Source information: Rfam assigns this 144-nucleotide RNA sequence from Oryctolagus cuniculus to the family "Small nucleolar RNA SNORA67". Rfam links the family to the GO terms nucleolus and RNA processing. Pairs were carried over by alignment from the consensus structure, which was predicted with RNAalifold. NCBI's taxonomy places the organism under Eukaryota, Vertebrata, Mammalia, Eutheria, Oryctolagus. The match comes from Rfam's covariance-model search (126 bits). U67 belongs to the H/ACA class of snoRNAs which are thought to guide the sites of modification of uridines to pseudouridines.
[Rfam]
RNA sequence: AUCCAAGUUGAUUCCCUUUCCCAGGGGCCUGACUAGUGCCUCUCUCAGGAAAGUAGCAACUUGGAAGAAAAUCCGGCAUGCCCAAAUGCUCUAGGAGACAAGGGGAUGCUUGCUUCUUUUGCCUGCUUUGGACUGCCUACAUGU
Numbered sequence: 001a002u003c004c005a006a007g008u009u010g011a012u013u014c015c016c017u018u019u020c021c022c023a024g025g026g027g028c029c030u031g032a033c034u035a036g037u038g039c040c041u042c043u044c045u046c047a048g049g050a051a052a053g054u055a056g057c058a059a060c061u062u063g064g065a066a067g068a069a070a071a072u073c074c075g076g077c078a079u080g081c082c083c084a085a086a087u088g089c090u091c092u093a094g095g096a097g098a099c100a101a102g103g104g105g106a107u108g109c110u111u112g113c114u115u116c117u118u119u120u121g122c123c124u125g126c127u128u129u130g131g132a133c134u135g136c137c138u139a140c141a142u143g144u
Base pairs, nucleotide, nucleotide: 002065003064004063005062006061007060009058010057019050020049021048023043024042025041026040027039028038076134079132081130084127093117095115096114097113